[Rfam]
RNA: Small nucleolar RNA SNORA84
Organism: Chrysochloris asiatica
RNA sequence: GCCCUUUGGUGCUGGAUGCUGUGGUUCAGAUGCAGCUCUCAGUAAAUGGCAAUGGGCCAGAGCAAUAUUGUGAUCUAUGUAUCAGGGAUGCUUUUCCUCAGUAGCCACCAUAGCCCGGUUACUGGUACAUGA
Numbered sequence: 001g002c003c004c005u006u007u008g009g010u011g012c013u014g015g016a017u018g019c020u021g022u023g024g025u026u027c028a029g030a031u032g033c034a035g036c037u038c039u040c041a042g043u044a045a046a047u048g049g050c051a052a053u054g055g056g057c058c059a060g061a062g063c064a065a066u067a068u069u070g071u072g073a074u075c076u077a078u079g080u081a082u083c084a085g086g087g088a089u090g091c092u093u094u095u096c097c098u099c100a101g102u103a104g105c106c107a108c109c110a111u112a113g114c115c116c117g118g119u120u121a122c123u124g125g126u127a128c129a130u131g132a
Stems, first nucleotide, its partner, number of pairs: 001057004007048002010045001011043004016039001018036005068124001070122006079114002081111002086106002089103004